[Rfam]
RNA sequence: GUUUGUGAUGAGUUAUCCGAUUGUUUGAGAUGUAGAUUUCUUCAAGAUCAUGUUUACAGGGUGAACCUACUUGGGGUGUCUACAUUGCUUUUGAAAUUAUCGGAUCUAACUGAGGC
Numbered sequence: 001g002u003u004u005g006u007g008a009u010g011a012g013u014u015a016u017c018c019g020a021u022u023g024u025u026u027g028a029g030a031u032g033u034a035g036a037u038u039u040c041u042u043c044a045a046g047a048u049c050a051u052g053u054u055u056a057c058a059g060g061g062u063g064a065a066c067c068u069a070c071u072u073g074g075g076g077u078g079u080c081u082a083c084a085u086u087g088c089u090u091u092u093g094a095a096a097u098u099a100u101c102g103g104a105u106c107u108a109a110c111u112g113a114g115g116c
Stems, first nucleotide, its partner, number of pairs: 001116003048061002051058002
Dot-bracket structure: (((............................................((.((....)).))....................................................)))
A member of the RNA family "Small nucleolar RNA Z278" from Hibiscus trionum, 116 nucleotides long. snoZ278 is a C/D box small nucleolar RNA. Its methylation guide targets have not been reported. The organism belongs to Hibiscus, within Eukaryota.